[Rfam]
RNA sequence: AGGGCAGUAUCGCUUGCGAACUGCACCGGCAGUAAAAUGGGUAAUGCAACUGAAUAAGUCUGCCUUGAUCUUAUGAAUGACAGGGACGGAGGA
Number, nucleotide and partner (000 for none) at each position: 001a000002g027003g026004g024005c023006a022007g021008u020009a000010u019011c018012g000013c000014u000015u000016g000017c000018g011019a010020a008021c007022u006023g005024c004025a000026c003027c002028g000029g000030c000031a000032g000033u000034a000035a000036a000037a000038u000039g000040g000041g000042u000043a000044a000045u000046g000047c000048a000049a000050c000051u000052g000053a000054a000055u000056a000057a000058g000059u000060c089061u088062g087063c085064c084065u083066u082067g081068a000069u080070c079071u000072u000073a000074u000075g000076a000077a000078u000079g070080a069081c067082a066083g065084g064085g063086a000087c062088g061089g060090a000091g000092g000093a000

This 93-nucleotide sequence from Planococcus salinus belongs to the Rfam family "pan motif". The family's consensus secondary structure is taken from published work. The family's RNA type in Rfam is cis-regulatory element.